Hovlinc ribozyme (hominin vlincRNA-located): a 173-nucleotide RNA sequence from Bos taurus. The literature on the family includes a 2021 paper in Nat Chem Biol by Chen et al., "Hovlinc is a recently evolved class of ribozyme found in human lncRNA". Rfam describes the family as follows. Hovlinc is a recently evolved class of self-cleaving ribozyme found in a very long non coding RNA (vlincRNA) in hominins, including humans (genus Homo), and chimpanzees and bonobos (genus Pan), but missing in gorillas (genus Gorilla).

RNA sequence: ACCAGGACUAAGCUCAGGAAUAUGGUGCCUAGAAGCUGGAUGGGCUAUGUGCUAAACCAAGACAAUGGUUCAUGGUUCUCCAACACCGUUGCCAACUCAUGGUUCCCAUGACCUGUGGUUGGAGAAACUGGACUAGGAAUCAGAGGAGCUCUGACAUUGCCAGCCACUGCUAG
Numbered sequence: 001a002c003c004a005g006g007a008c009u010a011a012g013c014u015c016a017g018g019a020a021u022a023u024g025g026u027g028c029c030u031a032g033a034a035g036c037u038g039g040a041u042g043g044g045c046u047a048u049g050u051g052c053u054a055a056a057c058c059a060a061g062a063c064a065a066u067g068g069u070u071c072a073u074g075g076u077u078c079u080c081c082a083a084c085a086c087c088g089u090u091g092c093c094a095a096c097u098c099a100u101g102g103u104u105c106c107c108a109u110g111a112c113c114u115g116u117g118g119u120u121g122g123a124g125a126a127a128c129u130g131g132a133c134u135a136g137g138a139a140u141c142a143g144a145g146g147a148g149c150u151c152u153g154a155c156a157u158u159g160c161c162a163g164c165c166a167c168u169g170c171u172a173g
Stems, first nucleotide, its partner, number of pairs: 011171003017165002025158001030154001032152001034150002046088001052137002055134001061073001077125004097111006112146003116142005